[Rfam]
RNA sequence: ACUCUCUCAGCUCUGCAUGGUUGCACUUUUUACUCACACGUGUGACUUUCGUAAAGGGGAGAGAGAGAAAGGAUCUCCUCACAACCUCAGGUUGGCCGUGUGGUGGCCAGUCUUGCUUUGAGGGGCGCAACAGAC
Numbered sequence: 001a002c003u004c005u006c007u008c009a010g011c012u013c014u015g016c017a018u019g020g021u022u023g024c025a026c027u028u029u030u031u032a033c034u035c036a037c038a039c040g041u042g043u044g045a046c047u048u049u050c051g052u053a054a055a056g057g058g059g060a061g062a063g064a065g066a067g068a069a070a071g072g073a074u075c076u077c078c079u080c081a082c083a084a085c086c087u088c089a090g091g092u093u094g095g096c097c098g099u100g101u102g103g104u105g106g107c108c109a110g111u112c113u114u115g116c117u118u119u120g121a122g123g124g125g126c127g128c129a130a131c132a133g134a135c
Base pairs, nucleotide, nucleotide: 002067003066004065005064006063007062008061011059012058013057014056019047020046021045022044023043024042025041026040075125076124077123078122079121081119083117089113090112091111093109094108095107096106097105

Annotation: This 135-nucleotide RNA from Catagonus wagneri belongs to the Rfam family "Small nucleolar RNA SNORA64/SNORA10 family". Rfam classes the family as an H/ACA-box small nucleolar RNA. The family's consensus secondary structure is taken from published work. Rfam's curators write: This family belongs to the H/ACA class of small nucleolar RNAs (snoRNAs) which act as guides in the the modification of uridines to pseudouridines. This family includes the human snoRNAs U64 and ACA10 and mouse MBI-29. The source organism's lineage runs through Eukaryota, Sarcopterygii, Mammalia, Laurasiatheria and Catagonus. Its Rfam clan is "SNORA64 clan". The match comes from Rfam's covariance-model search (91 bits).